[Rfam]
The record is a 380-nucleotide RNA from Thermobifida halotolerans, which matches "Bacterial RNase P class A" in Rfam. A search with the family's covariance model found it, with a score of 290 bits. The source organism's lineage runs through Bacteria, Bacillati, Actinomycetes, Streptosporangiales and Thermobifida. Ribonuclease P (RNase P) is a ubiquitous endoribonuclease, found in archaea, bacteria and eukarya as well as chloroplasts and mitochondria. The base pairs follow the family's consensus structure, which is taken from published work. The family's RNA type in Rfam is ribozyme.
RNA sequence: GGAGUCGGCCAGACGGUCGCGGCGCCGCGGUGCGGUGUCGAGGAAAGUCCGGACUCCACAGGGCAGGGUGGUCGGUAACACCGACCCGGGGAGACCCGCGGGACAGUGCCACAGAAAACAGACCGCCGCUCUUCGGAGCGGUAAGGGUGAAACGGUGGUGUAAGAGACCACCAGCGGCCGGAGCGAUCCGGCCGGCUCGGUAAACCCCACCCGGAGCAAGGCCAAGAGGGGGACCCCGGUCCCCUGCGCGGACGUUCGAGGGCUGCCCGUCCGAUGUCCGCGGGUAGGCCGCACGAGGCCGUUGGCAACAGCGGUCCCAGAUGGAUGGCCGUCCGGCCCGCACGGGCCGACAGAAUCCGGCUUACCGGCCGACUCCCCCC
Numbered sequence: 001g002g003a004g005u006c007g008g009c010c011a012g013a014c015g016g017u018c019g020c021g022g023c024g025c026c027g028c029g030g031u032g033c034g035g036u037g038u039c040g041a042g043g044a045a046a047g048u049c050c051g052g053a054c055u056c057c058a059c060a061g062g063g064c065a066g067g068g069u070g071g072u073c074g075g076u077a078a079c080a081c082c083g084a085c086c087c088g089g090g091g092a093g094a095c096c097c098g099c100g101g102g103a104c105a106g107u108g109c110c111a112c113a114g115a116a117a118a119c120a121g122a123c124c125g126c127c128g129c130u131c132u133u134c135g136g137a138g139c140g141g142u143a144a145g146g147g148u149g150a151a152a153c154g155g156u157g158g159u160g161u162a163a164g165a166g167a168c169c170a171c172c173a174g175c176g177g178c179c180g181g182a183g184c185g186a187u188c189c190g191g192c193c194g195g196c197u198c199g200g201u202a203a204a205c206c207c208c209a210c211c212c213g214g215a216g217c218a219a220g221g222c223c224a225a226g227a228g229g230g231g232g233a234c235c236c237c238g239g240u241c242c243c244c245u246g247c248g249c250g251g252a253c254g255u256u257c258g259a260g261g262g263c264u265g266c267c268c269g270u271c272c273g274a275u276g277u278c279c280g281c282g283g284g285u286a287g288g289c290c291g292c293a294c295g296a297g298g299c300c301g302u303u304g305g306c307a308a309c310a311g312c313g314g315u316c317c318c319a320g321a322u323g324g325a326u327g328g329c330c331g332u333c334c335g336g337c338c339c340g341c342a343c344g345g346g347c348c349g350a351c352a353g354a355a356u357c358c359g360g361c362u363u364a365c366c367g368g369c370c371g372a373c374u375c376c377c378c379c380c
Base pairs, nucleotide, nucleotide: 001376002375003374004373005372006371007370008369009368010367012333013332014331015330016329017328018327020040021039022038023037024036025035026034027033028032045363046362047361049360050359051358052357053356054216055215056214057213061268062267063266064265066212067211068210069209070208071085072084073083074082075081086100087098088097089096090095101207102206106205107204108201109200110199123146124145125142126141127140128139129138130137131136154172155171156170157169158168159167174196175194176193177192178191179190180189181188182187220290221289222288223287260272261271262270263269297316298315299314300313301312302311303310304309